mir-137 microRNA precursor family: a 72-nucleotide RNA sequence from Apis mellifera.
On this family, see Ruby et al., Genome Res 2007: "Evolution, biogenesis, expression, and target predictions of a substantially expanded set of Drosophila microRNAs".
The organism belongs to Apis, within Eukaryota.
It is one of the family's seed sequences.
Clan: mir-137 clan.
RNA sequence: GUUGGCGACGCGUAUUCUUGGGGAAUUAACACACAUUUGCGCUGUUAUUGCUUGAGAAUACACGUAGUUUGC
Numbered sequence: 001g002u003u004g005g006c007g008a009c010g011c012g013u014a015u016u017c018u019u020g021g022g023g024a025a026u027u028a029a030c031a032c033a034c035a036u037u038u039g040c041g042c043u044g045u046u047a048u049u050g051c052u053u054g055a056g057a058a059u060a061c062a063c064g065u066a067g068u069u070u071g072c
Base pairs, nucleotide, nucleotide: 001072002071004069005068008065009064010063012061013060014059015058016057017056018055019054020053021052022051025049027047028046029045030044031043032041